[Rfam]
U12 minor spliceosomal RNA: a 157-nucleotide RNA from Romanomermis culicivorax.
Its Rfam clan is "U2 clan".
Taxonomically the source falls in Romanomermis (Eukaryota, Metazoa, Nematoda, Dorylaimia).
The match comes from Rfam's covariance-model search (55 bits).
It is annotated as a spliceosomal small nuclear RNA.
The literature on the family includes a 2002 paper in Mol Cell by Otake et al., "The divergent U12-type spliceosome is required for pre-mRNA splicing and is essential for development in Drosophila".
The family has 62 seed sequences and 2,106 matches in Rfam 15.1.
RNA sequence: GUGCUCUAACCUAAAGAGUAAGGAAAAUUCGUGGUCAUCGGUUGACGCCGUGAUUAUGUGGCCUAAAGGGCUGCGAACCAGUUUUUGGAAGGGUAUAGGUCCCCCUCGGUGCGGCUGGCGCCUUUUUGCCAGGUGCUCCCCGCGUGGGAACUGCCCU
Numbered sequence: 001g002u003g004c005u006c007u008a009a010c011c012u013a014a015a016g017a018g019u020a021a022g023g024a025a026a027a028u029u030c031g032u033g034g035u036c037a038u039c040g041g042u043u044g045a046c047g048c049c050g051u052g053a054u055u056a057u058g059u060g061g062c063c064u065a066a067a068g069g070g071c072u073g074c075g076a077a078c079c080a081g082u083u084u085u086u087g088g089a090a091g092g093g094u095a096u097a098g099g100u101c102c103c104c105c106u107c108g109g110u111g112c113g114g115c116u117g118g119c120g121c122c123u124u125u126u127u128g129c130c131a132g133g134u135g136c137u138c139c140c141c142g143c144g145u146g147g148g149a150a151c152u153g154c155c156c157u
Stems, first nucleotide, its partner, number of pairs: 004023002007020002033055005039050003057075004090157005097152002100149004109138001111136003115132005